[Rfam]
RNA sequence: ACAGCCCGAAGGCCGCGAUGCUCAUCCCACACAGAACACCUCUGCGCGCGUUCUCCGUCAUGAGCGGGCUAAGGUCUGAGUAUCUUGUCCUCCUCGAUCGGCUCUAGCAGGGCUCCGCUCCAACGAGCCGCGCGACUCACCAGCAACCCUCGCAUGCACUUUGUUGGAAGUCCAUCCCUAUGGACGCGCCAGAACAAUCCCAUGGACUAGUGCUGAAGGCGUGUGCACCCAUUGGAACAGUUGCGAGGACCGGGUGCGUACACAUCCAUCCGACCCUAUCCGGCCCGCCUGCUCUCGCGCCGUCCGUCGUCUGUCGGCCUCGGGCUGACAGCGACGGCGGGCGUUGCAUCGCUCGUCUGCAUGAGCUGCAGCGGCACUUCUAUAAGAUACCGCUUCCAGCUCUGCUUUGGUCUCGCUUCGGCGAGGACAAGGGCGGCGUAUGAGGCGGGUAUUGGGUGCUGGAGGGCGAGUCAGAUGGCGGUGCGCACAGUUGAGUUCACUUCGCGGCGCGUGGUGCGUCGCCUGCUCGCAGUCGACGGCCACGCAACUCGAUUCAGACUACUCUUGGGCUGU
Number, nucleotide and partner (000 for none) at each position: 001a573002c572003a571004g570005c000006c000007c567008g566009a565010a000011g000012g508013c507014c506015g505016c504017g503018a502019u000020g065021c064022u063023c062024a061025u000026c000027c000028c000029a000030c000031a000032c000033a000034g053035a052036a051037c050038a000039c048040c000041u000042c000043u000044g000045c000046g000047c000048g039049c000050g037051u036052u035053c034054u000055c000056c000057g000058u000059c000060a000061u024062g023063a022064g021065c020066g000067g000068g000069c000070u000071a000072a000073g000074g000075u000076c557077u556078g555079a554080g553081u000082a000083u000084c000085u000086u000087g250088u249089c248090c247091u000092c000093c000094u000095c000096g000097a000098u000099c000100g114101g113102c112103u111104c110105u000106a000107g000108c000109a000110g104111g103112g102113c101114u100115c130116c000117g128118c127119u126120c125121c000122a000123a000124c000125g120126a119127g118128c117129c000130g115131c245132g244133c243134g242135a241136c240137u239138c000139a000140c000141c000142a000143g000144c000145a000146a000147c000148c000149c000150u000151c000152g000153c000154a000155u231156g230157c000158a000159c000160u000161u000162u000163g000164u000165u000166g000167g000168a000169a000170g000171u000172c000173c000174a000175u000176c000177c000178c000179u000180a000181u000182g000183g000184a000185c000186g000187c000188g000189c000190c000191a000192g000193a000194a000195c000196a000197a000198u000199c000200c000201c000202a000203u000204g000205g000206a000207c000208u000209a000210g000211u000212g000213c000214u000215g000216a000217a000218g000219g000220c000221g000222u000223g000224u000225g000226c000227a000228c000229c000230c156231a155232u000233u000234g000235g000236a000237a000238c000239a137240g136241u135242u134243g133244c132245g131246a000247g090248g089249a088250c087251c000252g000253g000254g000255u000256g000257c000258g000259u000260a000261c000262a000263c000264a000265u000266c000267c000268a000269u000270c000271c000272g000273a000274c000275c000276c000277u000278a000279u000280c000281c000282g000283g000284c000285c000286c000287g000288c000289c000290u000291g000292c000293u000294c000295u000296c000297g000298c000299g000300c000301c000302g000303u000304c000305c000306g000307u000308c000309g000310u000311c000312u000313g000314u000315c000316g000317g000318c000319c000320u000321c000322g000323g000324g000325c000326u000327g000328a000329c000330a000331g000332c000333g000334a000335c000336g000337g000338c000339g000340g000341g000342c000343g000344u000345u000346g000347c000348a000349u000350c000351g000352c000353u000354c000355g000356u000357c000358u000359g000360c000361a000362u000363g000364a000365g000366c000367u000368g000369c000370a000371g000372c000373g000374g000375c000376a000377c000378u000379u000380c000381u000382a000383u000384a000385a000386g000387a000388u000389a000390c000391c000392g000393c000394u000395u000396c000397c000398a000399g000400c000401u000402c000403u000404g000405c000406u000407u000408u000409g000410g000411u000412c000413u000414c000415g000416c000417u000418u000419c000420g000421g000422c000423g000424a000425g000426g000427a000428c000429a000430a000431g000432g000433g000434c000435g000436g000437c000438g000439u000440a000441u000442g000443a000444g000445g000446c000447g000448g000449g000450u000451a000452u000453u000454g000455g000456g000457u000458g000459c000460u000461g000462g000463a000464g000465g000466g000467c000468g000469a000470g000471u000472c000473a000474g000475a000476u000477g000478g000479c000480g000481g000482u000483g000484c000485g000486c000487a000488c000489a000490g000491u000492u000493g000494a000495g000496u000497u000498c000499a000500c000501u000502u018503c017504g016505c015506g014507g013508c012509g545510c544511g543512u542513g541514g540515u539516g000517c000518g000519u000520c000521g000522c000523c000524u000525g000526c000527u000528c000529g000530c000531a000532g000533u000534c000535g000536a000537c000538g000539g515540c514541c513542a512543c511544g510545c509546a000547a000548c000549u000550c000551g000552a000553u080554u079555c078556a077557g076558a000559c000560u000561a000562c000563u000564c000565u009566u008567g007568g000569g000570c004571u003572g002573u001
A member of the RNA family "Nuclear RNase P" from Hericium alpestre, 573 nucleotides long. Clan: RNaseP clan. The family's RNA type in Rfam is ribozyme. Taxonomically the source falls in Hericium (Eukaryota, Fungi, Basidiomycota, Russulales). The base pairs follow the family's consensus structure, which is taken from published work.